The record is a 266-nucleotide part of an RNA from Yarrowia lipolytica, which matches "Eukaryotic large subunit ribosomal RNA" in Rfam.
The family has 88 seed sequences and 107,465 matches in Rfam 15.1.
[Rfam]
RNA sequence: GAGUCUAAUGGAUAUGUGAGUGUUAGGGUGGCAAACCCCAGCGCGCAAUGAAAGUGAAUGGAUUCGUUCAGAAUCGACCGAACUUGAUUAUUAUGACAGUUUUGAGUAAACACAUCCAUUGGGACCCGAAAGAUGGUGAACUAUGCCUGGAUAGGGUGAAGUCAGAGGAAACUCUGAUGGAGGCUCGUAGCGGUUCUGACGUGCAAAUCGAUCGUAGGAUCUGGGUAUAGGGGCGAAAGACUAAUCGAACCAUCUAGUAGCUGGUU
Numbered sequence: 001g002a003g004u005c006u007a008a009u010g011g012a013u014a015u016g017u018g019a020g021u022g023u024u025a026g027g028g029u030g031g032c033a034a035a036c037c038c039c040a041g042c043g044c045g046c047a048a049u050g051a052a053a054g055u056g057a058a059u060g061g062a063u064u065c066g067u068u069c070a071g072a073a074u075c076g077a078c079c080g081a082a083c084u085u086g087a088u089u090a091u092u093a094u095g096a097c098a099g100u101u102u103u104g105a106g107u108a109a110a111c112a113c114a115u116c117c118a119u120u121g122g123g124a125c126c127c128g129a130a131a132g133a134u135g136g137u138g139a140a141c142u143a144u145g146c147c148u149g150g151a152u153a154g155g156g157u158g159a160a161g162u163c164a165g166a167g168g169a170a171a172c173u174c175u176g177a178u179g180g181a182g183g184c185u186c187g188u189a190g191c192g193g194u195u196c197u198g199a200c201g202u203g204c205a206a207a208u209c210g211a212u213c214g215u216a217g218g219a220u221c222u223g224g225g226u227a228u229a230g231g232g233g234c235g236a237a238a239g240a241c242u243a244a245u246c247g248a249a250c251c252a253u254c255u256a257g258u259a260g261c262u263g264g265u266u
Stems, first nucleotide, its partner, number of pairs: 005122009015112003020044003026038004048055002061075005077107002079104003082100003087094002125264002128261001132254006141230011152218001154186004161178007190215004195211002198209002232242002